[Rfam]
RNA: Selenocysteine transfer RNA
RNA sequence: GGGAGUAGGUAGUAGUCUGGUGACGCUCCCGGUCUUCAAAACCGGUGGGGGGCGUAUCCCGUCCCCGGUGGGUUCGAUUCCCAUCUGCUCCC
Numbered sequence: 001g002g003g004a005g006u007a008g009g010u011a012g013u014a015g016u017c018u019g020g021u022g023a024c025g026c027u028c029c030c031g032g033u034c035u036u037c038a039a040a041a042c043c044g045g046u047g048g049g050g051g052g053c054g055u056a057u058c059c060c061g062u063c064c065c066c067g068g069u070g071g072g073u074u075c076g077a078u079u080c081c082c083a084u085c086u087g088c089u090c091c092c
Stems, first nucleotide, its partner, number of pairs: 001092009011027003015024003029045005048066005069083004